[Rfam]
Notes
Rfam assigns this 198-nucleotide sequence from Oryza sativa to the family "Small nucleolar RNA Z242". Rfam links the family to the GO terms nucleolus and RNA processing.
RNA sequence: AGGGACCAGGAUGAUGGCUGGCCAAAUCCAGCUGGUCAUGGAGCCGGAGGCACGCGGUGACCGGACGCGGUGGCCUGUCGUGCCGGCAGAAACUGCGGAGCAUGGUGACCGGUACACAAUGAUAAUCUCAUCACAGCAACAGGUCGAUCUUCUGUGUAGACCUGAACAUGAAAAUCCUAAAACUCUGAACUAAUUUCA
Numbered sequence: 001a002g003g004g005a006c007c008a009g010g011a012u013g014a015u016g017g018c019u020g021g022c023c024a025a026a027u028c029c030a031g032c033u034g035g036u037c038a039u040g041g042a043g044c045c046g047g048a049g050g051c052a053c054g055c056g057g058u059g060a061c062c063g064g065a066c067g068c069g070g071u072g073g074c075c076u077g078u079c080g081u082g083c084c085g086g087c088a089g090a091a092a093c094u095g096c097g098g099a100g101c102a103u104g105g106u107g108a109c110c111g112g113u114a115c116a117c118a119a120u121g122a123u124a125a126u127c128u129c130a131u132c133a134c135a136g137c138a139a140c141a142g143g144u145c146g147a148u149c150u151u152c153u154g155u156g157u158a159g160a161c162c163u164g165a166a167c168a169u170g171a172a173a174a175u176c177c178u179a180a181a182a183c184u185c186u187g188a189a190c191u192a193a194u195u196u197c198a
Stems, first nucleotide, its partner, number of pairs: 002197004008191002080115007094102003
A reference for the family is Chen et al. (2003), "The high diversity of snoRNAs in plants: identification and comparative study of 120 snoRNA genes from Oryza sativa", Nucleic Acids Res.